[Rfam]
The family of this 108-nucleotide sequence from Hypholoma sublateritium is "Small nucleolar RNA Z13/snr52". A search with the family's covariance model found it, with a score of 77 bits. Rfam 15.1 lists 1,203 matches to the family in 866 species. The organism belongs to Hypholoma sublateritium, within Eukaryota. Pairs were carried over by alignment from the consensus structure, which was predicted with PFOLD. Gene Ontology terms of the family: RNA processing and nucleolus.

Nucleotides: 108
Base pairs, nucleotide, nucleotide: 004106025085026084027083028082
Number, partner (000 for none) and nucleotide at each position: 001000u002000a003000c004106u005000u006000u007000u008000c009000c010000a011000u012000g013000a014000u015000g016000a017000a018000a019000u020000c021000a022000u023000u024000u025085c026084g027083g028082a029000u030000g031000u032000a033000a034000a035000g036000c037000a038000g039000u040000c041000u042000a043000c044000g045000g046000a047000u048000g049000c050000a051000a052000a053000a054000c055000c056000c057000g058000a059000g060000a061000g062000c063000g064000c065000a066000a067000a068000a069000c070000c071000g072000u073000g074000u075000g076000g077000a078000u079000u080000u081000u082028u083027c084026c085025g086000u087000u088000g089000c090000c091000u092000u093000c094000c095000u096000u097000c098000u099000g100000a101000u102000c103000u104000u105000u106004a107000u108000u